[Rfam]
RNA sequence: GUCGCGGUGGCCGAGUGGUUAAGGCGUUGGACUCGAAAUCCAAUGGGUCUCCCCGCGCAGGUUCAAUCCUGCCCGCGACG
Numbered sequence: 001g002u003c004g005c006g007g008u009g010g011c012c013g014a015g016u017g018g019u020u021a022a023g024g025c026g027u028u029g030g031a032c033u034c035g036a037a038a039u040c041c042a043a044u045g046g047g048u049c050u051c052c053c054c055g056c057g058c059a060g061g062u063u064c065a066a067u068c069c070u071g072c073c074c075g076c077g078a079c080g
Stems, first nucleotide, its partner, number of pairs: 001079007010025003027043005057072005